[Rfam]
RNA sequence: AUUCUUUUUGUCAUGUAUCCCCGAUUGAUGCAGCCUUAGAUGCUUUU
Numbered sequence: 001a002u003u004c005u006u007u008u009u010g011u012c013a014u015g016u017a018u019c020c021c022c023g024a025u026u027g028a029u030g031c032a033g034c035c036u037u038a039g040a041u042g043c044u045u046u047u
Stems, first nucleotide, its partner, number of pairs: 010025003032044003
Rfam assigns this 47-nucleotide RNA from Taxus chinensis to the family "Plastid-ycf3 group II-D1 intron". Pairs were carried over by alignment from the consensus structure, which was predicted with LocARNA. Rfam links the family to the GO term Group II intron splicing. A search with the family's covariance model found it, with a score of 56 bits. On this family, see Richter et al., Plant Commun 2023: "Retrograde signaling in plants: A critical review focusing on the GUN pathway and beyond". Taxonomically the source falls in Taxus (Eukaryota, Streptophytina, Pinopsida, Pinidae). Rfam's curators write: Plastid rpl16 is a non-coding RNA (ncRNA) recognised in plastids. It was recognised in and intronic region of a ribosome rpl16 gene.